Methylophilales-1 RNA: a 98-nucleotide RNA sequence from Darwinula stevensoni. Rfam classes the family as a small RNA. A search with the family's covariance model found it, with a score of 89 bits.
RNA sequence: CUAAAGUGCGGUGAAUAAGGCAGUAAGCGAGUGAAACUUGCCGAUGAGUCGUCGUUGACCCAGUGCGACUCUGCCGAUAUAGAUUGGGCGCACUUACA
Numbered sequence: 001c002u003a004a005a006g007u008g009c010g011g012u013g014a015a016u017a018a019g020g021c022a023g024u025a026a027g028c029g030a031g032u033g034a035a036a037c038u039u040g041c042c043g044a045u046g047a048g049u050c051g052u053c054g055u056u057g058a059c060c061c062a063g064u065g066c067g068a069c070u071c072u073g074c075c076g077a078u079a080u081a082g083a084u085u086g087g088g089c090g091c092a093c094u095u096a097c098a
Stems, first nucleotide, its partner, number of pairs: 004095006019075004027041006046071006053065005